[Rfam]
RNA sequence: UUGGCUGGAUGAGGAUCAUAGGAACCACAUUAAAGCAAAUAAUUGCUUUUAAAUGUUCCUGGGAAGGUCUGAGAAAUGGCCCACACUUUUGGGUGUUAUCUCCGAGAAGGAGUAGUCUCGAGUUGAGACUGGCGCUGUACUGGAAAGGCUAUCGGUCAGCCGCUGUUAAUUUUGUGCAAAGGGAAAAGAAGUUCUUUUAAAGAAUUGAUCCCGCAUUUAAUUAACAUUGGGAAACAGUGUUGGUGCUAGCUUUAUUUAAGUGCGAUGAUCCUUUCCAAACACAAUUCAGACUACUCUCCGGCCAA
Numbered sequence: 001u002u003g004g005c006u007g008g009a010u011g012a013g014g015a016u017c018a019u020a021g022g023a024a025c026c027a028c029a030u031u032a033a034a035g036c037a038a039a040u041a042a043u044u045g046c047u048u049u050u051a052a053a054u055g056u057u058c059c060u061g062g063g064a065a066g067g068u069c070u071g072a073g074a075a076a077u078g079g080c081c082c083a084c085a086c087u088u089u090u091g092g093g094u095g096u097u098a099u100c101u102c103c104g105a106g107a108a109g110g111a112g113u114a115g116u117c118u119c120g121a122g123u124u125g126a127g128a129c130u131g132g133c134g135c136u137g138u139a140c141u142g143g144a145a146a147g148g149c150u151a152u153c154g155g156u157c158a159g160c161c162g163c164u165g166u167u168a169a170u171u172u173u174g175u176g177c178a179a180a181g182g183g184a185a186a187a188g189a190a191g192u193u194c195u196u197u198u199a200a201a202g203a204a205u206u207g208a209u210c211c212c213g214c215a216u217u218u219a220a221u222u223a224a225c226a227u228u229g230g231g232a233a234a235c236a237g238u239g240u241u242g243g244u245g246c247u248a249g250c251u252u253u254a255u256u257u258a259a260g261u262g263c264g265a266u267g268a269u270c271c272u273u274u275c276c277a278a279a280c281a282c283a284a285u286u287c288a289g290a291c292u293a294c295u296c297u298c299c300g301g302c303c304a305a
Stems, first nucleotide, its partner, number of pairs: 001305004007299003020060005033048006069289005079246002081243002100112004114130006131241007155225002
Dot-bracket structure: ((((..(((..........(((((........((((((....)))))).......)))))........(((((.....((((.................((((.....)))).((((((.....))))))(((((((.................((...................................................................)).........))))))))).))......................................))))).......)))..))))